[Rfam]
RNA sequence: CUCUUAUCAAGAGCGGUGGAGGGAUUAGGCCCUGUGAAGCCCGGCAACCAUUGAGGCAGUUCAACUUGCCUUGAAAGGUGCUAAAUCCUACAGAUCAGGUAGUCUGGAAGAUAAGAG
Number, nucleotide and partner (000 for none) at each position: 001c117002u116003c115004u114005u113006a112007u111008c110009a000010a000011g000012a000013g042014c000015g041016g040017u039018g000019g000020a000021g032022g031023g030024a000025u000026u090027a089028g088029g087030c023031c022032c021033u000034g000035u000036g000037a000038a000039g017040c016041c015042c013043g082044g081045c080046a079047a000048c078049c077050a000051u073052u000053g071054a000055g000056g000057c000058a000059g000060u000061u000062c000063a000064a000065c000066u000067u000068g000069c000070c000071u053072u000073g051074a000075a000076a000077g049078g048079u046080g045081c044082u043083a000084a000085a000086u109087c029088c028089u027090a026091c106092a105093g104094a103095u102096c000097a000098g000099g000100u000101a000102g095103u094104c093105u092106g091107g000108a000109a086110g008111a007112u006113a005114a004115g003116a002117g001
Shown here is a 117-nucleotide RNA sequence from Lentibacillus salicampi, a member of the family "SAM riboswitch aptamer (S box leader)". The organism belongs to Lentibacillus, within Bacteria. From the family's description: The SAM riboswitch is found upstream of a number of genes which code for proteins involved in methionine or cysteine biosynthesis in Gram-positive bacteria. The SAM riboswitch acts at the level of transcription termination control. The predicted structure consists of a complex stem-loop region followed by a single stem loop terminator region. An alternative and mutually exclusive form involves bases in the 3' segment of helix 1 with those in the 5' region of helix 5 to form a structure termed the anti-terminator form.